[Rfam]
RNA sequence: AAUGAAUGAUGACAAAAUGUUUCGGUCCCAGAUGACAUGGAAUGAUUCCAUUUCACCUUUUUCUGACAUU
Numbered sequence: 001a002a003u004g005a006a007u008g009a010u011g012a013c014a015a016a017a018u019g020u021u022u023c024g025g026u027c028c029c030a031g032a033u034g035a036c037a038u039g040g041a042a043u044g045a046u047u048c049c050a051u052u053u054c055a056c057c058u059u060u061u062u063c064u065g066a067c068a069u070u
Base pairs, nucleotide, nucleotide: 001070002069003068004067
The record is a 70-nucleotide RNA sequence from Anthoscopus minutus, which matches "Small nucleolar RNA SNORD73" in Rfam. Its family is annotated with RNA processing and nucleolus in the Gene Ontology. NCBI's taxonomy places the organism under Eukaryota, Eumetazoa, Euteleostomi, Saurischia, Anthoscopus. The family's consensus secondary structure was predicted with PFOLD. It scores 77 bits against the family's covariance model.